[Rfam]
RNA sequence: GAGUGGGACAGAUCUUUUGGAAUUUGUCUAGUGGGGUUUUCACAAAACUGCACUGGAAAACCUCA
Numbered sequence: 001g002a003g004u005g006g007g008a009c010a011g012a013u014c015u016u017u018u019g020g021a022a023u024u025u026g027u028c029u030a031g032u033g034g035g036g037u038u039u040u041c042a043c044a045a046a047a048c049u050g051c052a053c054u055g056g057a058a059a060a061c062c063u064c065a
Stems, first nucleotide, its partner, number of pairs: 034063008
Overview: This 65-nucleotide RNA from Bos taurus belongs to the Rfam family "U7 small nuclear RNA". Rfam describes the family as follows. Animal histone pre-mRNAs are spliced by a different mechanism than nuclear pre-mRNAs and self-splicing introns. The match comes from Rfam's covariance-model search (35 bits). The organism belongs to Bos, within Eukaryota. For this family Rfam cites "3' end processing of mouse histone pre-mRNA: evidence for additional base-pairing between U7 snRNA and pre-mRNA" (Spycher et al., Nucleic Acids Res, 1994). The family's consensus secondary structure was predicted with PFOLD.